[Rfam]
RNA sequence: UGCGUUAGUGAUGAUUUUAAAUUUAAAAAAGAUGGAAAUCUCUCUGAAAGAGAAUGAAGAUUAAUUUUAAACUGAAACAGUA
Numbered sequence: 001u002g003c004g005u006u007a008g009u010g011a012u013g014a015u016u017u018u019a020a021a022u023u024u025a026a027a028a029a030a031g032a033u034g035g036a037a038a039u040c041u042c043u044c045u046g047a048a049a050g051a052g053a054a055u056g057a058a059g060a061u062u063a064a065u066u067u068u069a070a071a072c073u074g075a076a077a078c079a080g081u082a
Stems, first nucleotide, its partner, number of pairs: 001082003004078003

Description: Rfam assigns this 82-nucleotide sequence from Carlito syrichta to the family "Small nucleolar RNA SNORD79". About the family: snoRNA U79 or Z22 is found in intron 7 of the gas5 gene in humans and is also present in mice. Rfam classes the family as a C/D-box small nucleolar RNA. Its family is annotated with nucleolus and RNA processing in the Gene Ontology. Its Rfam clan is "SNORD74 clan". The match comes from Rfam's covariance-model search (81 bits). The base pairs follow the family's consensus structure, which was predicted with PFOLD. For this family Rfam cites "Purified box C/D snoRNPs are able to reproduce site-specific 2'-O-methylation of target RNA in vitro" (Galardi et al., Mol Cell Biol, 2002).